[Rfam]
RNA sequence: GCUAGACUAUUUUUGCGAUGUGUUCCUAAUAUGUUAUAUGAAUGUAUUGGGGACAUCUUGCAUUCCUAGUUUUGUAUC
Number, nucleotide and partner (000 for none) at each position: 001g000002c000003u000004a072005g071006a070007c069008u068009a067010u000011u000012u000013u000014u062015g061016c060017g059018a058019u000020g056021u055022g054023u053024u052025c051026c050027u049028a048029a047030u046031a045032u044033g043034u000035u000036a000037u000038a000039u000040g000041a000042a000043u033044g032045u031046a030047u029048u028049g027050g026051g025052g024053a023054c022055a021056u020057c000058u018059u017060g016061c015062a014063u000064u000065c000066c000067u009068a008069g007070u006071u005072u004073u000074g000075u000076a000077u000078c000